[Rfam]
RNA sequence: AUAGGAAUAACAGUGCAAUUCUCCUUUGGCAUGGUAAUGGAAGCUAUGCAGCAUGCAUAAAAUUCAACUGCAUAUGCCUCUUUCCUUUGCCAAAGGAGAGUUGCCCUGCCAUUCAAUU
Number, nucleotide and partner (000 for none) at each position: 001a000002u000003a000004g000005g114006a113007a112008u111009a000010a000011c108012a107013g106014u000015g104016c103017a102018a101019u100020u000021c098022u097023c096024c095025u000026u000027u092028g091029g090030c089031a088032u000033g086034g085035u000036a000037a000038u000039g000040g000041a000042a000043g000044c000045u000046a000047u000048g000049c000050a000051g000052c000053a000054u000055g000056c000057a000058u000059a000060a000061a000062a000063u000064u000065c000066a000067a000068c000069u000070g000071c000072a000073u000074a000075u000076g000077c000078c000079u000080c000081u000082u000083u000084c000085c034086u033087u000088u031089g030090c029091c028092a027093a000094a000095g024096g023097a022098g021099a000100g019101u018102u017103g016104c015105c000106c013107u012108g011109c000110c000111a008112u007113u006114c005115a000116a000117u000118u000
RNA: mir-399 microRNA precursor family